RNA sequence: ACAGAGGUAUCCGAAAAUCUUAAAGAGUAGGAA
Numbered sequence: 001a002c003a004g005a006g007g008u009a010u011c012c013g014a015a016a017a018u019c020u021u022a023a024a025g026a027g028u029a030g031g032a033a
Stems, first nucleotide, its partner, number of pairs: 003020003010032003

This 33-nucleotide RNA sequence belongs to the Rfam family "DUF805b RNA". It is annotated as a cis-regulatory element.